[Rfam]
RNA sequence: GGGAUGAACAACCACAGUGGCGGCGGCCAUCUCUGGAGCCCUGGAUUCAGCUCCCGCAGUAACUACCGAGCUCUCCCUCUGCAGGGGCCUGGAUGCUCCGGGGUGGG
Numbered sequence: 001g002g003g004a005u006g007a008a009c010a011a012c013c014a015c016a017g018u019g020g021c022g023g024c025g026g027c028c029a030u031c032u033c034u035g036g037a038g039c040c041c042u043g044g045a046u047u048c049a050g051c052u053c054c055c056g057c058a059g060u061a062a063c064u065a066c067c068g069a070g071c072u073c074u075c076c077c078u079c080u081g082c083a084g085g086g087g088c089c090u091g092g093a094u095g096c097u098c099c100g101g102g103g104u105g106g107g
Stems, first nucleotide, its partner, number of pairs: 002099003007094001009091002012087002019079002022076002025074002029072001031070003035066001037064001041059003